[Rfam]
RNA: Manganese Mn2+ riboswitch aptamer (yybP-ykoY)
RNA sequence: CUUUAUGUCAAAGGGGAGUAGCGUUAGGUAGCCUUAAAUGGGGUAUACCUAAAACAAAGUCGUCAAUUCGUGAGCUAGCUCACCGGCUUUGUUGACAUGAAUUAUGUCU
Number, nucleotide and partner (000 for none) at each position: 001c000002u000003u000004u000005a000006u000007g000008u000009c000010a000011a000012a000013g000014g000015g000016g000017a000018g000019u000020a000021g000022c000023g000024u000025u051026a050027g049028g048029u047030a046031g000032c000033c000034u000035u000036a000037a000038a000039u000040g000041g000042g000043g000044u000045a000046u030047a029048c028049c027050u026051a025052a000053a093054a092055c091056a090057a089058a088059g087060u086061c085062g084063u000064c000065a000066a000067u000068u000069c000070g083071u082072g081073a080074g079075c000076u000077a000078g000079c074080u073081c072082a071083c070084c062085g061086g060087c059088u058089u057090u056091g055092u054093u053094g000095a000096c000097a000098u000099g000100a000101a000102u000103u000104a000105u000106g000107u000108c000109u000